[Rfam]
RNA: S15-Flavobacteria ribosomal protein leader
Organism: Kordia antarctica
RNA sequence: UAUAUUUGCCGCUUGAUACGAGAUACGUAUUGAUACAUAAAAAUCAUUAAAAUUAAUAUUGGCAUG
Numbered sequence: 001u002a003u004a005u006u007u008g009c010c011g012c013u014u015g016a017u018a019c020g021a022g023a024u025a026c027g028u029a030u031u032g033a034u035a036c037a038u039a040a041a042a043a044u045c046a047u048u049a050a051a052a053u054u055a056a057u058a059u060u061g062g063c064a065u066g
Base pairs, nucleotide, nucleotide: 014032015031016030017029018028019027